[Rfam]
RNA sequence: GCGAAUAAGUAGAAGCGCCCGCUUCUCACCUUUCGCCAUAGGGCAGAAAGGUUUCUUCUUGAAAGUCAAAAGUAAUAUGGGCGAAGAAGCGGGUGGAUUAUCCGCUUUUAUUUUUUGAU
Numbered sequence: 001g002c003g004a005a006u007a008a009g010u011a012g013a014a015g016c017g018c019c020c021g022c023u024u025c026u027c028a029c030c031u032u033u034c035g036c037c038a039u040a041g042g043g044c045a046g047a048a049a050g051g052u053u054u055c056u057u058c059u060u061g062a063a064a065g066u067c068a069a070a071a072g073u074a075a076u077a078u079g080g081g082c083g084a085a086g087a088a089g090c091g092g093g094u095g096g097a098u099u100a101u102c103c104g105c106u107u108u109u110a111u112u113u114u115u116u117g118a119u
Stems, first nucleotide, its partner, number of pairs: 011026006028052003033047002035044002088106008
This 119-nucleotide sequence from Caldanaerobacter subterraneus belongs to the Rfam family "Ribosomal protein L20 leader". By type it is a cis-regulatory leader. The source organism's lineage runs through Bacteria, Thermoanaerobacteraceae, Caldanaerobacter, Caldanaerobacter subterraneus and Caldanaerobacter subterraneus subsp. tengcongensis. Rfam links the family to the GO term regulation of gene expression. This family is a putative r-protein leader autoregulatory structure found in B. subtilis and other low-GC Gram-positive bacteria.